RNA sequence: UACGUGCUCCGGGGUCAGUGUAAGUCUGAACCGGCGGUGAUAGUCCGCGACCCACGAAAGUGGUUGAUUGGGUGAAAUUCCCAAACCGACGGUUAAAGUCCGGAUGGUAGGAGCAACAU
Numbered sequence: 001u002a003c004g005u006g007c008u009c010c011g012g013g014g015u016c017a018g019u020g021u022a023a024g025u026c027u028g029a030a031c032c033g034g035c036g037g038u039g040a041u042a043g044u045c046c047g048c049g050a051c052c053c054a055c056g057a058a059a060g061u062g063g064u065u066g067a068u069u070g071g072g073u074g075a076a077a078u079u080c081c082c083a084a085a086c087c088g089a090c091g092g093u094u095a096a097a098g099u100c101c102g103g104a105u106g107g108u109a110g111g112a113g114c115a116a117c118a119u
Base pairs, nucleotide, nucleotide: 005115006114007113008112009111010110016028017027018026030099031098032088033087034048035047036046037045043086044085052063053062068084069083070082071081072080090102091101092100